RNA sequence: CUCCUCGAAAGCUAUUUAGGUAGCGCCUCAUGUAUCACUCUCGGGGGUAGAGCACUGUUAUGGCUAGGGGGUCAUCCCGACUUACCAAACCAUUGCAAACUCCGAAUACCGGGAAGUGCGAGCAUGGGAGACACACGGCGGGAGCUAACUUCCGUCGUGGAAAGGGAAACAACCCAGACCGCCAGCUAAGGUCCCCAAAUCAUGGCUCAGUGGGAAACGAUGUGGGAAGGCAAAAACAGCCAGGAGGUUGGCUUAGAAGCAGCCAUCCUUUAAAGAAAGCGUAAUAGCUCACUGGUCGAGUCGGCCUGCGCGGAAGAUUUAACGGGGCUCAAGCCAUGUACCGAAGCUGCGGACCUGUCUUGGACAGGUGGUAGAGGAGCGUUCUGUAAGCCUGCGAAGGUGUGUCGAAAGGCAUGCUGGAGGUAUCAGAAGUGCGAAU
Numbered sequence: 001c002u003c004c005u006c007g008a009a010a011g012c013u014a015u016u017u018a019g020g021u022a023g024c025g026c027c028u029c030a031u032g033u034a035u036c037a038c039u040c041u042c043g044g045g046g047g048u049a050g051a052g053c054a055c056u057g058u059u060a061u062g063g064c065u066a067g068g069g070g071g072u073c074a075u076c077c078c079g080a081c082u083u084a085c086c087a088a089a090c091c092a093u094u095g096c097a098a099a100c101u102c103c104g105a106a107u108a109c110c111g112g113g114a115a116g117u118g119c120g121a122g123c124a125u126g127g128g129a130g131a132c133a134c135a136c137g138g139c140g141g142g143a144g145c146u147a148a149c150u151u152c153c154g155u156c157g158u159g160g161a162a163a164g165g166g167a168a169a170c171a172a173c174c175c176a177g178a179c180c181g182c183c184a185g186c187u188a189a190g191g192u193c194c195c196c197a198a199a200u201c202a203u204g205g206c207u208c209a210g211u212g213g214g215a216a217a218c219g220a221u222g223u224g225g226g227a228a229g230g231c232a233a234a235a236a237c238a239g240c241c242a243g244g245a246g247g248u249u250g251g252c253u254u255a256g257a258a259g260c261a262g263c264c265a266u267c268c269u270u271u272a273a274a275g276a277a278a279g280c281g282u283a284a285u286a287g288c289u290c291a292c293u294g295g296u297c298g299a300g301u302c303g304g305c306c307u308g309c310g311c312g313g314a315a316g317a318u319u320u321a322a323c324g325g326g327g328c329u330c331a332a333g334c335c336a337u338g339u340a341c342c343g344a345a346g347c348u349g350c351g352g353a354c355c356u357g358u359c360u361u362g363g364a365c366a367g368g369u370g371g372u373a374g375a376g377g378a379g380c381g382u383u384c385u386g387u388a389a390g391c392c393u394g395c396g397a398a399g400g401u402g403u404g405u406c407g408a409a410a411g412g413c414a415u416g417c418u419g420g421a422g423g424u425a426u427c428a429g430a431a432g433u434g435c436g437a438a439u
Base pairs, nucleotide, nucleotide: 001379002378003377004376005375006374011024012023013022014021015020026130027128028127029126030125031124032123033122035121036118037117038116039114040113041112042111043110044109050103051101052100056097057096058095060093061092062091063090067086068085069083070082071081072080073079134159135158136157137156138155139154140153141152142151143150164175165174166173179352180351181350182349184348185347186346190342191341192340199339201338202337203336204335205334206333218312219311222309223308224307225306226305229302230301231300239296240295241294242293243292245269246268247267250264251263252262270274275290279288280287353369354368355367356366357365358364359363380434382431383430384429385428386427390424391423392422399418400417401416402415403414404413405412406411
Shown here is a 439-nucleotide part of an RNA from Thioalkalivibrio paradoxus, a member of the family "Bacterial large subunit ribosomal RNA". The literature on the family includes a 2002 paper in BMC Bioinformatics by Cannone et al., "The comparative RNA web (CRW) site: an online database of comparative sequence and structure information for ribosomal, intron, and other RNAs".